[Rfam]
RNA sequence: ACCAUCCUGCGAUGUACGUGACGGUUCUCAGUUGUUUUGAACCAAUGACUGUUUCUAGGGAGACCAAUAAGACGGCGUGGCUGACAUGCCCCACGAACGGGGACUUCAUAAGCGCUGCUGAGGACACCCACCUGCGAGAGCGGGUUCUGAAACACAGGAGCCGAACGGCAUAUGCGGGAUUCCU
Numbered sequence: 001a002c003c004a005u006c007c008u009g010c011g012a013u014g015u016a017c018g019u020g021a022c023g024g025u026u027c028u029c030a031g032u033u034g035u036u037u038u039g040a041a042c043c044a045a046u047g048a049c050u051g052u053u054u055c056u057a058g059g060g061a062g063a064c065c066a067a068u069a070a071g072a073c074g075g076c077g078u079g080g081c082u083g084a085c086a087u088g089c090c091c092c093a094c095g096a097a098c099g100g101g102g103a104c105u106u107c108a109u110a111a112g113c114g115c116u117g118c119u120g121a122g123g124a125c126a127c128c129c130a131c132c133u134g135c136g137a138g139a140g141c142g143g144g145u146u147c148u149g150a151a152a153c154a155c156a157g158g159a160g161c162c163g164a165a166c167g168g169c170a171u172a173u174g175c176g177g178g179a180u181u182c183c184u
Stems, first nucleotide, its partner, number of pairs: 004180008012171004017167003035152004039147005058129003062125001064123002069119001073117006084106001089102004
6S / SsrS RNA: a 184-nucleotide sequence from Paenibacillus swuensis.
The family's consensus secondary structure is taken from published work.
From the family's description: E. coli 6S RNA was the first non coding RNA to be sequenced, but its function was unknown until recently. It consists of 184 nucleotides that fold into an extended hairpin structure with a large single-stranded internal bulge. The 6S RNA specifically associates with RNA polymerase holoenzyme containing the sigma70 specificity factor. This interaction represses expression from a sigma70-dependent promoter during stationary phase. 6S RNA homologs have recently been identified in most bacterial genomes. Many Gram-positive species have two copies of 6S RNA. In Bacillus subtilis, both copies appear to interact with RNA polymerase holoenzyme containing the housekeeping sigma factor and be expressed during different stages of growth. In many proteobacteria, 6S RNA may be processed from a transcript encoding homologs of the E. coli YgfA protein which is a putative 5-formyltetrahydrofolate cycloligase activity.